[Rfam]
RNA sequence: GUGAUUCAGGCGGCCCACUCCUCCUCCCAGGGACGUCUGAAGGACCAGCGGCACUCCUCCUCCCUGUCGCUGAUCGGUUCUUUUAGGAAAGCCUGCCGCACCUCCUCCCGCGGCAGGCUUUUUCG
Numbered sequence: 001g002u003g004a005u006u007c008a009g010g011c012g013g014c015c016c017a018c019u020c021c022u023c024c025u026c027c028c029a030g031g032g033a034c035g036u037c038u039g040a041a042g043g044a045c046c047a048g049c050g051g052c053a054c055u056c057c058u059c060c061u062c063c064c065u066g067u068c069g070c071u072g073a074u075c076g077g078u079u080c081u082u083u084u085a086g087g088a089a090a091g092c093c094u095g096c097c098g099c100a101c102c103u104c105c106u107c108c109c110g111c112g113g114c115a116g117g118c119u120u121u122u123u124c125g
Base pairs, nucleotide, nucleotide: 007039008038009037010036011035012034014032015031016030043075044074046072047071048070049069050068051067052066089120090119091118092117093116094115095114096113097112098111099110